[Rfam]
The family of this 57-nucleotide sequence from Dipteronia sinensis is "Plastid-ndhJ 3UTR RNA". Plastid ndhJ is a non-coding RNA (ncRNA) present in plastids. It was identified as a short stem-loop motif in the 3 prime untranslate region (3UTR) of ndhJ gene. Pairs were carried over by alignment from the consensus structure, which was predicted with LocARNA. The family has 50 seed sequences and 869 matches in Rfam 15.1. A reference for the family is Richter et al. (2023), "Retrograde signaling in plants: A critical review focusing on the GUN pathway and beyond", Plant Commun.
RNA sequence: UCAUGAACUUUGUAUCGCGCACAUCGCUUAGAUGGGCUCCAGAGGGUCACAUAGGAG
Number, nucleotide and partner (000 for none) at each position: 001u000002c000003a000004u000005g000006a000007a000008c000009u000010u000011u000012g000013u000014a000015u000016c000017g000018c000019g037020c036021a000022c034023a033024u032025c031026g000027c000028u000029u000030a000031g025032a024033u023034g022035g000036g020037c019038u000039c000040c000041a000042g000043a000044g000045g000046g000047u000048c000049a000050c000051a000052u000053a000054g000055g000056a000057g000